RNA sequence: GGGUGCUUGAAGCUGUCUGCUUUGGGCAUUGUUUGAAUCAGUGCUGUAAGUGUCUUGGUAAAAACAGUUGUUGUCAUAAAGCAGAUAGGAAAAAGCCCCGUACUGACGUUAAUCAAUACGAGGCUCCCUAAUGCCUGGCAACAUUACGCUAGCUUCUUACCUGCUGAAAGGCAAAACAUGGAGGCCAAAUAUG
Numbered sequence: 001g002g003g004u005g006c007u008u009g010a011a012g013c014u015g016u017c018u019g020c021u022u023u024g025g026g027c028a029u030u031g032u033u034u035g036a037a038u039c040a041g042u043g044c045u046g047u048a049a050g051u052g053u054c055u056u057g058g059u060a061a062a063a064a065c066a067g068u069u070g071u072u073g074u075c076a077u078a079a080a081g082c083a084g085a086u087a088g089g090a091a092a093a094a095g096c097c098c099c100g101u102a103c104u105g106a107c108g109u110u111a112a113u114c115a116a117u118a119c120g121a122g123g124c125u126c127c128c129u130a131a132u133g134c135c136u137g138g139c140a141a142c143a144u145u146a147c148g149c150u151a152g153c154u155u156c157u158u159a160c161c162u163g164c165u166g167a168a169a170g171g172c173a174a175a176a177c178a179u180g181g182a183g184g185c186c187a188a189a190u191a192u193g
Base pairs, nucleotide, nucleotide: 001099002098003097005096006095007094008093013088014087015086016085017084018083019082020081021080022079023078026075100119101118102117120156121155122154123153124152127148129146130145131144132143133142160184161183162182164180
This 193-nucleotide sequence from Yersinia enterocolitica belongs to the Rfam family "sok antitoxin (CssrC)". For this family Rfam cites "An antisense RNA controls synthesis of an SOS-induced toxin evolved from an antitoxin" (Kawano et al., Mol Microbiol, 2007). The family's RNA type in Rfam is antitoxin RNA. Lineage of the source: Bacteria > Yersiniaceae > Yersinia > Yersinia enterocolitica > Yersinia enterocolitica subsp. enterocolitica. Also identified in Shigella as CssrC. Rfam's curators put it in the seed alignment.